Shown here is a 171-nucleotide sequence from Mycobacterium triviale, a member of the family "M-box riboswitch aptamer (ykoK leader)".
On this family, see Barrick et al., Proc Natl Acad Sci U S A 2004: "New RNA motifs suggest an expanded scope for riboswitches in bacterial genetic control".
M-box riboswitch, also know as ykoK leader is described as a metaloregulatory RNA that sense divalent metals and function as a genetic control element of genes related to divalent metal transport in bacteria.
Taxonomically the source falls in Mycobacterium (subgen. Mycolicibacillus) (Bacteria, Bacillati, Actinomycetes, Mycobacterium).
The base pairs follow the family's consensus structure.
RNA sequence: CAUGCACCUCGCUAGGUGAGGCUUCUGUACGGACAUAGGACACUGACCCUCAACGUCGAGAGACGCCCCGGGUCAGGACAGCUCUUCUCGGCUUAAGGGUUGAGCCCAAGUGGCUUCUGGUCGCACCAGAUACGCCGUACAGUGCCAAAACUUUGACGAGAGGGGUGCGGU
Numbered sequence: 001c002a003u004g005c006a007c008c009u010c011g012c013u014a015g016g017u018g019a020g021g022c023u024u025c026u027g028u029a030c031g032g033a034c035a036u037a038g039g040a041c042a043c044u045g046a047c048c049c050u051c052a053a054c055g056u057c058g059a060g061a062g063a064c065g066c067c068c069c070g071g072g073u074c075a076g077g078a079c080a081g082c083u084c085u086u087c088u089c090g091g092c093u094u095a096a097g098g099g100u101u102g103a104g105c106c107c108a109a110g111u112g113g114c115u116u117c118u119g120g121u122c123g124c125a126c127c128a129g130a131u132a133c134g135c136c137g138u139a140c141a142g143u144g145c146c147a148a149a150a151c152u153u154u155g156a157c158g159a160g161a162g163g164g165g166u167g168c169g170g171u
Stems, first nucleotide, its partner, number of pairs: 005167006011157001013096001015152003020146003025142008039114001041112003045074005054065004081105004087099003116130003